[Rfam]
RNA: Mason-Pfizer monkey virus packaging signal
Organism: Octodon degus
RNA sequence: AGACCCCCAACGUGGGGAACCUGGUAUGGAGGAUUCAGCAAGGGAACCAUCCCAGAGAGCCAGCAAGAGUGAAAGUAAAAGAGGCCUGCGCCGCAGUUGCCUGCUGCGAUGUCUGAACCUCAGCAAGUGGACAGGGCCCUUUCCCCCUUCCCUUCAGCAAUGGGACAGGCAUUAAGUGAACAUGAGAUUUUUGUAGAAAGUUUGAGUAAAGCAUUAGAGGCACAAGGAGUAAAGGUUAAAAUUAAGGAUUUGUGUCAUGGCAAUUGUAUUGCCUGAUAUA
Numbered sequence: 001a002g003a004c005c006c007c008c009a010a011c012g013u014g015g016g017g018a019a020c021c022u023g024g025u026a027u028g029g030a031g032g033a034u035u036c037a038g039c040a041a042g043g044g045a046a047c048c049a050u051c052c053c054a055g056a057g058a059g060c061c062a063g064c065a066a067g068a069g070u071g072a073a074a075g076u077a078a079a080a081g082a083g084g085c086c087u088g089c090g091c092c093g094c095a096g097u098u099g100c101c102u103g104c105u106g107c108g109a110u111g112u113c114u115g116a117a118c119c120u121c122a123g124c125a126a127g128u129g130g131a132c133a134g135g136g137c138c139c140u141u142u143c144c145c146c147c148u149u150c151c152c153u154u155c156a157g158c159a160a161u162g163g164g165a166c167a168g169g170c171a172u173u174a175a176g177u178g179a180a181c182a183u184g185a186g187a188u189u190u191u192u193g194u195a196g197a198a199a200g201u202u203u204g205a206g207u208a209a210a211g212c213a214u215u216a217g218a219g220g221c222a223c224a225a226g227g228a229g230u231a232a233a234g235g236u237u238a239a240a241a242u243u244a245a246g247g248a249u250u251u252g253u254g255u256c257a258u259g260g261c262a263a264u265u266g267u268a269u270u271g272c273c274u275g276a277u278a279u280a
Base pairs, nucleotide, nucleotide: 006032007031012027013026014025081121082120083119084118088114089111092108093107094106095105096104128167129166173216174215175214176212177211223259224258226256227255229253230252233251234250235249236248237247265280266279267278268277269276270275